A member of the RNA family "Small nucleolar RNA SNORD81", 77 nucleotides long.
Rfam's curators put it in the seed alignment.
Rfam classes the family as a C/D-box small nucleolar RNA.
The base pairs follow the family's consensus structure, which was predicted with PFOLD.

[Rfam]
RNA sequence: CAGAAUACAUGAUGAUCUCAAUCCAACUUGAACUCUCUCACUGAUUACUUGAUGACAAUAAAAUAUCUGAUAUUCUG
Numbered sequence: 001c002a003g004a005a006u007a008c009a010u011g012a013u014g015a016u017c018u019c020a021a022u023c024c025a026a027c028u029u030g031a032a033c034u035c036u037c038u039c040a041c042u043g044a045u046u047a048c049u050u051g052a053u054g055a056c057a058a059u060a061a062a063a064u065a066u067c068u069g070a071u072a073u074u075c076u077g
Stems, first nucleotide, its partner, number of pairs: 001077007
Clan: SNORD26 clan. A reference for the family is Smith and Steitz (1998), "Classification of gas5 as a multi-small-nucleolar-RNA (snoRNA) host gene and a member of the 5'-terminal oligopyrimidine gene family reveals common features of snoRNA host genes", Mol Cell Biol.